[Rfam]
RNA sequence: CCUAGGGCGUUGCCCUAGGCUGACAUAGGACGCACCUUUGGUGCU
Numbered sequence: 001c002c003u004a005g006g007g008c009g010u011u012g013c014c015c016u017a018g019g020c021u022g023a024c025a026u027a028g029g030a031c032g033c034a035c036c037u038u039u040g041g042u043g044c045u
Stems, first nucleotide, its partner, number of pairs: 001019008032044005

Annotation: A member of the RNA family "Acido-Lenti-1 RNA" from Lentimonas sp. CC11, 45 nucleotides long. A search with the family's covariance model found it, with a score of 42 bits. The family's consensus secondary structure is taken from published work. The family's RNA type in Rfam is small RNA.